[Rfam]
The record is a 168-nucleotide RNA sequence from Propionispora vibrioides, which matches "glmS glucosamine-6-phosphate activated ribozyme aptamer" in Rfam. It scores 95 bits against the family's covariance model. The organism belongs to Propionispora, within Bacteria.
RNA sequence: AACUAAACAAGAGCGCUGGUGCUUGCCGAAGAUGCGGAAUGAUCAGGCAAGCAGACGAGGUAGAGGUUUAUCGAUAUUGUCAGCGGAUGCCUCUCGGCCACUGCAGGUCGUUAUGUAAUCUACAAAACCAUAAGGCAACUUGUGGGACAAAAAGAUUCGUGCAGGGAC
Numbered sequence: 001a002a003c004u005a006a007a008c009a010a011g012a013g014c015g016c017u018g019g020u021g022c023u024u025g026c027c028g029a030a031g032a033u034g035c036g037g038a039a040u041g042a043u044c045a046g047g048c049a050a051g052c053a054g055a056c057g058a059g060g061u062a063g064a065g066g067u068u069u070a071u072c073g074a075u076a077u078u079g080u081c082a083g084c085g086g087a088u089g090c091c092u093c094u095c096g097g098c099c100a101c102u103g104c105a106g107g108u109c110g111u112u113a114u115g116u117a118a119u120c121u122a123c124a125a126a127a128c129c130a131u132a133a134g135g136c137a138a139c140u141u142g143u144g145g146g147a148c149a150a151a152a153a154g155a156u157u158c159g160u161g162c163a164g165g166g167a168c
Stems, first nucleotide, its partner, number of pairs: 020053008062094005071083001073081002095110005115158001117156001119155002128145007